[Rfam]
RNA sequence: ACACAGGGAAGGAGGUGGUCCGGAACAUUGAGUAGGAAUUCUUGGACAUGUGAGGUGGCUGCCCGCUAGCAGCGCCAGGUGCCGGAAUCACCUGCGCCCUGAGCGCGCUGGCGAAUUCCAGGCAGCUACCCGGCCCCCGAGCCCCUGGUUGAGUCCGACCAGGAUUGACGGCUCGGGGGCCGCCCCAU
Numbered sequence: 001a002c003a004c005a006g007g008g009a010a011g012g013a014g015g016u017g018g019u020c021c022g023g024a025a026c027a028u029u030g031a032g033u034a035g036g037a038a039u040u041c042u043u044g045g046a047c048a049u050g051u052g053a054g055g056u057g058g059c060u061g062c063c064c065g066c067u068a069g070c071a072g073c074g075c076c077a078g079g080u081g082c083c084g085g086a087a088u089c090a091c092c093u094g095c096g097c098c099c100u101g102a103g104c105g106c107g108c109u110g111g112c113g114a115a116u117u118c119c120a121g122g123c124a125g126c127u128a129c130c131c132g133g134c135c136c137c138c139g140a141g142c143c144c145c146u147g148g149u150u151g152a153g154u155c156c157g158a159c160c161a162g163g164a165u166u167g168a169c170g171g172c173u174c175g176g177g178g179g180c181c182g183c184c185c186c187a188u
Stems, first nucleotide, its partner, number of pairs: 014063006064113007072106004077100003131182013144163006
The record is a 188-nucleotide sequence from Mycolicibacterium anyangense, which matches "Actinobacteria sRNA Ms_IGR-5" in Rfam. The source organism's lineage runs through Bacteria, Actinomycetota, Mycobacteriales, Mycobacteriaceae and Mycobacterium (subgen. Mycolicibacterium). It is annotated as a small RNA. Pairs were carried over by alignment from the consensus structure.